This 178-nucleotide RNA sequence from Hydrogenophaga sp. IBVHS2 belongs to the Rfam family "Manganese Mn2+ riboswitch aptamer (yybP-ykoY)". Taxonomically the source falls in Hydrogenophaga (Bacteria, Pseudomonadati, Betaproteobacteria, Comamonadaceae). Rfam 15.1 lists 1,126 matches to the family in 1,062 species.
[Rfam]
Nucleotides: 178
Stems, first nucleotide, its partner, number of pairs: 026044003046086010063076005088177005
Number, partner (000 for none) and nucleotide at each position: 001000c002000a003000c004000c005000u006000c007000g008000u009000c010000a011000u012000u013000g014000g015000g016000g017000a018000g019000u020000a021000g022000c023000c024000g025000c026044c027043c028042g029000g030000c031000g032000c033000g034000c035000c036000a037000u038000g039000c040000g041000c042028c043027g044026g045000g046086g047085c048084a049083c050082g051081c052080g053079u054078c055077a056000a057000c058000a059000g060000a061000c062000u063076u064075g065074g066073c067072c068000u069000u070000c071000c072067g073066g074065c075064c076063a077055u078054g079053g080052c081051g082050c083049g084048u085047g086046c087000a088177g089176c090175u091174u092173c093000c094000a095000g096000c097000c098000u099000g100000g101000c102000a103000a104000g105000a106000c107000c108000u109000u110000u111000g112000a113000c114000c115000g116000c117000a118000u119000c120000g121000c122000c123000u124000c125000c126000a127000c128000c129000g130000u131000g132000g133000c134000c135000g136000g137000g138000g139000a140000g141000g142000c143000g144000c145000u146000g147000c148000g149000g150000u151000c152000a153000u154000u155000g156000c157000g158000u159000c160000c161000g162000c163000a164000c165000c166000g167000g168000c169000c170000c171000a172000u173092g174091g175090a176089g177088u178000c